[Rfam]
RNA sequence: UCCCAGUGAAGAAACAGUCACAUGUCUUACUUCCUGUCCUAGUCUCAGAGCCUGUAAAGGUGAACCCACUGGGGCUGGCUGGGGGAACGAAGGAGACUUGCUCCAGAAGGAACUGUUUGAGGGAU
Dot-bracket structure: ((((....................................................................................................................)))).
Numbered sequence: 001u002c003c004c005a006g007u008g009a010a011g012a013a014a015c016a017g018u019c020a021c022a023u024g025u026c027u028u029a030c031u032u033c034c035u036g037u038c039c040u041a042g043u044c045u046c047a048g049a050g051c052c053u054g055u056a057a058a059g060g061u062g063a064a065c066c067c068a069c070u071g072g073g074g075c076u077g078g079c080u081g082g083g084g085g086a087a088c089g090a091a092g093g094a095g096a097c098u099u100g101c102u103c104c105a106g107a108a109g110g111a112a113c114u115g116u117u118u119g120a121g122g123g124a125u
Stems, first nucleotide, its partner, number of pairs: 001124004

Record summary:
Rfam assigns this 125-nucleotide RNA from Canis lupus to the family "Small nucleolar RNA SNORD22". The family has 49 seed sequences and 1,081 matches in Rfam 15.1. Pairs were carried over by alignment from the consensus structure, which was predicted with PFOLD. Lineage of the source: Eukaryota > Bilateria > Dipnotetrapodomorpha > Boreoeutheria > Canis lupus.